The record is an 87-nucleotide RNA sequence from Eubacterium sp. CAG:156, which matches "GA-cis RNA" in Rfam.
The family's consensus secondary structure is taken from published work.
RNA sequence: AUGAAAAUAAAUAAAAUGAAUGAAAUUCAUUUUUUAUAAAUGUUCUCAACAAAUAGCCGCCGACCGGAGGGAGGGGCAGUACAUCUU
Dot-bracket structure: ..((.(((......((((((.....))))))..........))).))........(((.((..((...))..)))))..........
Numbered sequence: 001a002u003g004a005a006a007a008u009a010a011a012u013a014a015a016a017u018g019a020a021u022g023a024a025a026u027u028c029a030u031u032u033u034u035u036a037u038a039a040a041u042g043u044u045c046u047c048a049a050c051a052a053a054u055a056g057c058c059g060c061c062g063a064c065c066g067g068a069g070g071g072a073g074g075g076g077c078a079g080u081a082c083a084u085c086u087u
Stems, first nucleotide, its partner, number of pairs: 003047002006044003015031006056077003060074002064070002